Background:
Shown here is a 75-nucleotide sequence from Haemonchus placei, a member of the family "mir-5928 microRNA precursor family". A search with the family's covariance model found it, with a score of 62 bits. Gene Ontology terms of the family: miRNA-mediated post-transcriptional gene silencing and RISC complex.
RNA sequence: GGCACAAAUUUGAAGUAAAGUAUGUUAGUAGGAUUGUCCGACCCUACUUAAGUACUCUACUUCAAGUUUGUUCCC
Numbered sequence: 001g002g003c004a005c006a007a008a009u010u011u012g013a014a015g016u017a018a019a020g021u022a023u024g025u026u027a028g029u030a031g032g033a034u035u036g037u038c039c040g041a042c043c044c045u046a047c048u049u050a051a052g053u054a055c056u057c058u059a060c061u062u063c064a065a066g067u068u069u070g071u072u073c074c075c
Stems, first nucleotide, its partner, number of pairs: 001074002004071006011064007019056005025050001027048004032043001034041002